[Rfam]
Nucleotides: 193
Stems, first nucleotide, its partner, number of pairs: 014059004019054001060100003065095004071089003119187011132152006
Number, partner (000 for none) and nucleotide at each position: 001000a002000c003000a004000c005000g006000g007000g008000a009000g010000a011000g012000g013000a014059g015058g016057u017056g018000a019054u020000c021000c022000g023000a024000g025000a026000a027000g028000u029000g030000g031000u032000u033000g034000a035000u036000u037000u038000u039000c040000g041000g042000a043000c044000g045000c046000g047000u048000g049000a050000g051000g052000u053000g054019a055000c056017u057016g058015c059014c060100c061099g062098c063000u064000a065095g066094c067093c068092g069000a070000a071089c072088g073087g074000c075000a076000g077000c078000g079000u080000g081000a082000g083000c084000c085000a086000c087073c088072c089071g090000g091000a092068c093067g094066g095065c096000c097000u098062g099061c100060g101000a102000g103000a104000a105000c106000c107000a108000g109000g110000c111000a112000g113000u114000c115000a116000c117000c118000g119187g120186a121185g122184c123183c124182c125181g126180c127179g128178g129177g130000a131000g132152u133151c134150g135149c136148g137147c138000c139000c140000u141000c142000g143000u144000c145000c146000a147137g148136c149135g150134c151133g152132a153000c154000g155000c156000c157000c158000c159000c160000u161000u162000c163000a164000g165000g166000u167000c168000g169000a170000a171000g172000g173000g174000g175000a176000g177129c178128c179127c180126g181125c182124g183123g184122g185121c186120u187119c188000u189000u190000c191000c192000a193000c
Rfam assigns this 193-nucleotide RNA sequence from Quadrisphaera granulorum to the family "Actinobacteria sRNA Ms_IGR-5". By type it is a small RNA. The match comes from Rfam's covariance-model search (76 bits).